Iron response element II: a 31-nucleotide RNA from Pangasianodon hypophthalmus. The match comes from Rfam's covariance-model search (33 bits). Its family is annotated with response to iron ion in the Gene Ontology. The family has 30 seed sequences and 5,197 matches in Rfam 15.1. By type it is a cis-regulatory element. NCBI's taxonomy places the organism under Eukaryota, Gnathostomata, Euteleostomi, Actinopterygii, Pangasianodon.
RNA sequence: CCAUUAUCGGGAGCAGCGUCUCCUAUAAUGU
Numbered sequence: 001c002c003a004u005u006a007u008c009g010g011g012a013g014c015a016g017c018g019u020c021u022c023c024u025a026u027a028a029u030g031u
Base pairs, nucleotide, nucleotide: 002030003029004028005027006026007025009024010023011022012021013020014018